[Rfam]
The record is a 58-nucleotide RNA from Rubellimicrobium rubrum, which matches "terC RNA" in Rfam. A search with the family's covariance model found it, with a score of 58 bits. Pairs were carried over by alignment from the consensus structure, which is taken from published work. NCBI's taxonomy places the organism under Bacteria, Pseudomonadota, Rhodobacterales, Roseobacteraceae, Rubellimicrobium.
RNA sequence: ACGGGGGUCCGGGCCCCUCUGGCGGCGGCUCAUGGCCCCGCGAUGUCGGACCUUCCUU
Numbered sequence: 001a002c003g004g005g006g007g008u009c010c011g012g013g014c015c016c017c018u019c020u021g022g023c024g025g026c027g028g029c030u031c032a033u034g035g036c037c038c039c040g041c042g043a044u045g046u047c048g049g050a051c052c053u054u055c056c057u058u
Base pairs, nucleotide, nucleotide: 006052007051008050009049010048011047012046022041023040024039025038027037028036029035